This 99-nucleotide RNA from Bradyrhizobium erythrophlei belongs to the Rfam family "Rhizobiales-2 RNA". The source organism's lineage runs through Bacteria, Pseudomonadota, Alphaproteobacteria, Nitrobacteraceae and Bradyrhizobium.

[Rfam]
RNA sequence: GGGAGCGGUCAUCCCUCCCACGGCUAUAUCUGGCGCGAGCGCCCAUCCACCCCAAGCGCCAUAUGGCUUGACCCGCCCGGUUGUCCCCCCGGGCGGGUC
Numbered sequence: 001g002g003g004a005g006c007g008g009u010c011a012u013c014c015c016u017c018c019c020a021c022g023g024c025u026a027u028a029u030c031u032g033g034c035g036c037g038a039g040c041g042c043c044c045a046u047c048c049a050c051c052c053c054a055a056g057c058g059c060c061a062u063a064u065g066g067c068u069u070g071a072c073c074c075g076c077c078c079g080g081u082u083g084u085c086c087c088c089c090c091g092g093g094c095g096g097g098u099c
Stems, first nucleotide, its partner, number of pairs: 001019005023067007032060005070099011